[Rfam]
RNA: Bacillaceae-1 RNA
Organism: Solibacillus sp. R5-41
RNA sequence: AGUAGGGGAAAUCAGGCGAAGAACAUUGCAUCUUGCGGCAAAGCCUGAUUGACCAACAUCGUGUUGG
Numbered sequence: 001a002g003u004a005g006g007g008g009a010a011a012u013c014a015g016g017c018g019a020a021g022a023a024c025a026u027u028g029c030a031u032c033u034u035g036c037g038g039c040a041a042a043g044c045c046u047g048a049u050u051g052a053c054c055a056a057c058a059u060c061g062u063g064u065u066g067g
Stems, first nucleotide, its partner, number of pairs: 011049007026038004053067005